[Rfam]
A member of the RNA family "Plastid-psbA-1 3UTR RNA" from Asclepias syriaca, 120 nucleotides long.
From the family's description: Plastid psbA-1 is a non-coding RNA (ncRNA) present in plastids.
By type it is a cis-regulatory element.
RNA sequence: UAGAAGCUCCAUCUAUCAAUGGCUAAGAUCGCCAGUCUUAGUGUAUAGGAGUUUUUGAAAAAUAAAGGAGCAAAAAGCAUCUUCUUGAUAGAACAAGAAGGUGAUUUUUGCUCCUUUAUU
Numbered sequence: 001u002a003g004a005a006g007c008u009c010c011a012u013c014u015a016u017c018a019a020u021g022g023c024u025a026a027g028a029u030c031g032c033c034a035g036u037c038u039u040a041g042u043g044u045a046u047a048g049g050a051g052u053u054u055u056u057g058a059a060a061a062a063u064a065a066a067g068g069a070g071c072a073a074a075a076a077g078c079a080u081c082u083u084c085u086u087g088a089u090a091g092a093a094c095a096a097g098a099a100g101g102u103g104a105u106u107u108u109u110g111c112u113c114c115u116u117u118a119u120u
Stems, first nucleotide, its partner, number of pairs: 009022004064117013078103003082099005